[Rfam]
RNA sequence: CUGGUUCCGGUUCACGCCGUGAGCACUCGCGCUCCGGCGACCCGGCGACU
Numbered sequence: 001c002u003g004g005u006u007c008c009g010g011u012u013c014a015c016g017c018c019g020u021g022a023g024c025a026c027u028c029g030c031g032c033u034c035c036g037g038c039g040a041c042c043c044g045g046c047g048a049c050u
Stems, first nucleotide, its partner, number of pairs: 003050003007045004015039005021034003
RNA: L31-Actinobacteria ribosomal protein leader
Organism: Nocardioides iriomotensis